[Rfam]
RNA sequence: CCACAUAAACCCGUAGAUCCGAACUUGUGCUGCCAUCUAUCACAAGCUCGACUCUAUGGGUCUGUGUUGU
Numbered sequence: 001c002c003a004c005a006u007a008a009a010c011c012c013g014u015a016g017a018u019c020c021g022a023a024c025u026u027g028u029g030c031u032g033c034c035a036u037c038u039a040u041c042a043c044a045a046g047c048u049c050g051a052c053u054c055u056a057u058g059g060g061u062c063u064g065u066g067u068u069g070u
Stems, first nucleotide, its partner, number of pairs: 003067005010060003015055003020050003024046006